RNA sequence: AGAAAAAUUCAUACGCUGCCUCAUAUAUAUUCGGGGAUAUGGCCUGAAGGUUUCUACCCGGCACCGUAAAUGCCGGACUAUGAGGGGAGAUGGAACUGCU
Numbered sequence: 001a002g003a004a005a006a007a008u009u010c011a012u013a014c015g016c017u018g019c020c021u022c023a024u025a026u027a028u029a030u031u032c033g034g035g036g037a038u039a040u041g042g043c044c045u046g047a048a049g050g051u052u053u054c055u056a057c058c059c060g061g062c063a064c065c066g067u068a069a070a071u072g073c074c075g076g077a078c079u080a081u082g083a084g085g086g087g088a089g090a091u092g093g094a095a096c097u098g099c100u
Base pairs, nucleotide, nucleotide: 019085020084021083022082023081024080025079030048031047032046033045034044035043058076059075060074061073062072063071
RNA: Purine riboswitch aptamer
Organism: Lentibacillus kapialis